Record summary:
The record is a 74-nucleotide RNA sequence from Tichodroma muraria, which matches "Hfq-regulated sRNA 1" in Rfam. The literature on the family includes a 2014 paper in BMC Genomics by Zeng and Sundin, "Genome-wide identification of Hfq-regulated small RNAs in the fire blight pathogen Erwinia amylovora discovered small RNAs with virulence regulatory function". It is annotated as a small RNA. The family's consensus secondary structure was predicted with RNAfold. It scores 56 bits against the family's covariance model.

[Rfam]
RNA sequence: AAAAAAAACCCCCACAUCAUGUGGGGGAAGACAGGGAUGGUGUCUAUGGCAAGGAAAACAGGGUUUACUGGUUA
Dot-bracket structure: ........(((((((.....)))))))..(((..(...((..((..(..........)..)).))..)..))).